[Rfam]
RNA: Bacterial large subunit ribosomal RNA, nucleotides 1299 to 1618
Organism: Hominimerdicola alba
RNA sequence: GAGAAUUAUGUGAGAAUCAUAAUGGCCGAAAAUCUAAGGUUUCCUGAGGAAGGUUCGUCCGCUCAGGGUAAGCCGGGGGCUAAGGUCAGGCCGAAAGGCGUAGCCGAUGCACAUACGGUUGAAAUUCCGUAGCCACCGAAAGAUUUAAGUAUAGGGACGCUUCGAAAGUGAUGAAGCCGGGCGAUGGUUGACCCGGUCGUAAGGGAUCGAAAAUAAGUAGAGAAGUCAUCAUGGACGGAGACAAGAAAAGCUAUAUGUAUAUCUUAGGUGCCCGUACCGCAAACCGACACAGGUAGAUAGGAAGAAGAUUCUAAGGCCAA
Numbered sequence: 001g002a003g004a005a006u007u008a009u010g011u012g013a014g015a016a017u018c019a020u021a022a023u024g025g026c027c028g029a030a031a032a033u034c035u036a037a038g039g040u041u042u043c044c045u046g047a048g049g050a051a052g053g054u055u056c057g058u059c060c061g062c063u064c065a066g067g068g069u070a071a072g073c074c075g076g077g078g079g080c081u082a083a084g085g086u087c088a089g090g091c092c093g094a095a096a097g098g099c100g101u102a103g104c105c106g107a108u109g110c111a112c113a114u115a116c117g118g119u120u121g122a123a124a125u126u127c128c129g130u131a132g133c134c135a136c137c138g139a140a141a142g143a144u145u146u147a148a149g150u151a152u153a154g155g156g157a158c159g160c161u162u163c164g165a166a167a168g169u170g171a172u173g174a175a176g177c178c179g180g181g182c183g184a185u186g187g188u189u190g191a192c193c194c195g196g197u198c199g200u201a202a203g204g205g206a207u208c209g210a211a212a213a214u215a216a217g218u219a220g221a222g223a224a225g226u227c228a229u230c231a232u233g234g235a236c237g238g239a240g241a242c243a244a245g246a247a248a249a250g251c252u253a254u255a256u257g258u259a260u261a262u263c264u265u266a267g268g269u270g271c272c273c274g275u276a277c278c279g280c281a282a283a284c285c286g287a288c289a290c291a292g293g294u295a296g297a298u299a300g301g302a303a304g305a306a307g308a309u310u311c312u313a314a315g316g317c318c319a320a
Stems, first nucleotide, its partner, number of pairs: 005023006024318004032298004038278002043067006052060002074274004079110002084105003088101001090099003114131005134270004139265002142263002146259002150255005160240003170230005176197006198203001207221002210218001284293002300312004